[Rfam]
RNA sequence: CGACCACAAGUUGACGUGAGUGGGCUAUGACAAUUUAUUUGUCCGGCCCAGGAAAGUCCCCGGGCCCUGAUCUGCAGAGAUGCAGGCCUGGAAACAGGUACAGCUUGAUGAUGAAAUUUAAAACCUUGGGUUUGGGCUGAGACAAGUGUGGAGCCUUCAGAUUUCUCUCAAGUCAAAUUGGUCGAUAACACAGUCAUUCACGUGGUCCAUUAAAUGGAUUAACCGAACGGGGCUUACACUCUUGUGGUC
Numbered sequence: 001c002g003a004c005c006a007c008a009a010g011u012u013g014a015c016g017u018g019a020g021u022g023g024g025c026u027a028u029g030a031c032a033a034u035u036u037a038u039u040u041g042u043c044c045g046g047c048c049c050a051g052g053a054a055a056g057u058c059c060c061c062g063g064g065c066c067c068u069g070a071u072c073u074g075c076a077g078a079g080a081u082g083c084a085g086g087c088c089u090g091g092a093a094a095c096a097g098g099u100a101c102a103g104c105u106u107g108a109u110g111a112u113g114a115a116a117u118u119u120a121a122a123a124c125c126u127u128g129g130g131u132u133u134g135g136g137c138u139g140a141g142a143c144a145a146g147u148g149u150g151g152a153g154c155c156u157u158c159a160g161a162u163u164u165c166u167c168u169c170a171a172g173u174c175a176a177a178u179u180g181g182u183c184g185a186u187a188a189c190a191c192a193g194u195c196a197u198u199c200a201c202g203u204g205g206u207c208c209a210u211u212a213a214a215u216g217g218a219u220u221a222a223c224c225g226a227a228c229g230g231g232g233c234u235u236a237c238a239c240u241c242u243u244g245u246g247g248u249c
Stems, first nucleotide, its partner, number of pairs: 002249009014203006021050005029043005054235003058232004073084004086099005108168001113165004148158001150156002205219006
About this RNA: Rfam assigns this 249-nucleotide RNA from Daucus carota to the family "RNase MRP". By type it is a ribozyme. The family's consensus secondary structure is taken from published work. Rfam links the family to the GO terms ribonuclease MRP activity, rRNA processing and ribonuclease MRP complex.